MIR5269 microRNA precursor family: a 79-nucleotide RNA sequence from Medicago truncatula. Gene Ontology terms of the family: miRNA-mediated post-transcriptional gene silencing and RISC complex. The match comes from Rfam's covariance-model search (62 bits). The organism belongs to Medicago, within Eukaryota.

[Rfam]
RNA sequence: UUGGUUUAAAUUAUCGUGGAUCUACACUUUAAAAAUUAAACCCACACAAAAUGGUGGGACAUACAUUGAUCUUAUCUAA
Dot-bracket structure: ((((.(.(.((((..(((...(((((.(((.................))).)).)))....)))..)))).).).))))